The family of this 114-nucleotide sequence from Parambassis ranga is "U5 spliceosomal RNA". From the family's description: U5 RNA is a component of both types of known spliceosome. Pairs were carried over by alignment from the consensus structure, which is taken from published work.
Nucleotides: 114
Stems, first nucleotide, its partner, number of pairs: 003077004009068011028054008096113006
Number, partner (000 for none) and nucleotide at each position: 001000u002000c003077a004076c005075u006074c007000u008000u009068g010067u011066u012065u013064c014063u015062c016061u017060u018059c019058a020000u021000a022000u023000c024000g025000u026000a027000u028054a029053a030052a031051u032050c033049u034048u035047u036000c037000g038000c039000c040000u041000u042000u043000u044000a045000c046000u047035a048034a049033a050032g051031a052030u053029u054028u055000c056000c057000g058019u059018g060017g061016a062015g063014g064013g065012g066011a067010a068009c069000a070000a071000c072000a073000a074006g075005a076004g077003u078000u079000u080000g081000u082000u083000c084000c085000a086000a087000u088000u089000u090000u091000u092000g093000a094000u095000g096113c097112c098111c099110u100109g101108c102000a103000u104000c105000u106000g107000u108101g109100u110099g111098g112097g113096g114000u